[Rfam]
RNA sequence: ACAGCGUAAGCCGAAAAGCUGGGAGAGAGUAGGCG
Numbered sequence: 001a002c003a004g005c006g007u008a009a010g011c012c013g014a015a016a017a018g019c020u021g022g023g024a025g026a027g028a029g030u031a032g033g034c035g
Stems, first nucleotide, its partner, number of pairs: 002021004010034003

DUF805b RNA: a 35-nucleotide RNA. The base pairs follow the family's consensus structure, which is taken from published work.